The record is a 131-nucleotide sequence from Sinocyclocheilus grahami, which matches "U4atac minor spliceosomal RNA" in Rfam. A reference for the family is Shukla et al. (2002), "Domains of human U4atac snRNA required for U12-dependent splicing in vivo", Nucleic Acids Res. Gene Ontology terms of the family: spliceosomal tri-snRNP complex assembly, mRNA 5'-splice site recognition and pre-mRNA 5'-splice site binding. The family is grouped with related families in Rfam's "U4 clan". From the family's description: U4atac is an essential component of the minor U12-type spliceosome complex which is required for removal of the rarer class of eukaryotic introns (AT-AC, U12-type). Taxonomically the source falls in Sinocyclocheilus (Eukaryota, Cypriniphysae, Cypriniformes, Cyprinidae).
RNA sequence: UCCUUCCUUGUCUGGGGGUGGACUGGGCGGCUCAAUGAGCGUGUAGCGAGAGCAGCCCUGCUGACACCUAACCAACACAAUCCGCAUCACCUGGACUGCAGUGUUCGGGCUAUGGUGCAAUUUUUGGAACC
Numbered sequence: 001u002c003c004u005u006c007c008u009u010g011u012c013u014g015g016g017g018g019u020g021g022a023c024u025g026g027g028c029g030g031c032u033c034a035a036u037g038a039g040c041g042u043g044u045a046g047c048g049a050g051a052g053c054a055g056c057c058c059u060g061c062u063g064a065c066a067c068c069u070a071a072c073c074a075a076c077a078c079a080a081u082c083c084g085c086a087u088c089a090c091c092u093g094g095a096c097u098g099c100a101g102u103g104u105u106c107g108g109g110c111u112a113u114g115g116u117g118c119a120a121u122u123u124u125u126g127g128a129a130c131c
Stems, first nucleotide, its partner, number of pairs: 006018004023060001025058001027056002030053004039047002084118006090109006